[Rfam]
The record is a 120-nucleotide RNA from Streptomyces sulfonofaciens, which matches "Streptomyces-metH RNA" in Rfam.
RNA sequence: CCCGUCCGCCUCCUGGACGGACCGGCGCCACGGAGCCACUCCCCGCUACGCUGGCCGGGUGCGUCUUCCCGCCGGAAGCCGCAAAGCCGACAGCCGUCGCAUCCAGGGAGCACUCUCAUG
Number, nucleotide and partner (000 for none) at each position: 001c000002c000003c000004g000005u000006c000007c000008g000009c000010c000011u000012c000013c000014u000015g000016g000017a000018c000019g000020g000021a000022c000023c000024g000025g000026c000027g000028c000029c000030a000031c000032g000033g000034a000035g000036c000037c000038a000039c000040u000041c000042c000043c000044c000045g000046c000047u000048a000049c000050g000051c000052u000053g000054g000055c000056c000057g000058g000059g000060u083061g082062c081063g080064u000065c078066u077067u076068c075069c000070c000071g000072c000073c000074g000075g068076a067077a066078g065079c000080c063081g062082c061083a060084a000085a000086g100087c099088c000089g098090a097091c096092a000093g000094c000095c000096g091097u090098c089099g087100c086101a000102u000103c000104c000105a000106g000107g000108g000109a000110g000111c000112a000113c000114u000115c000116u000117c000118a000119u000120g000

A search with the family's covariance model found it, with a score of 97 bits.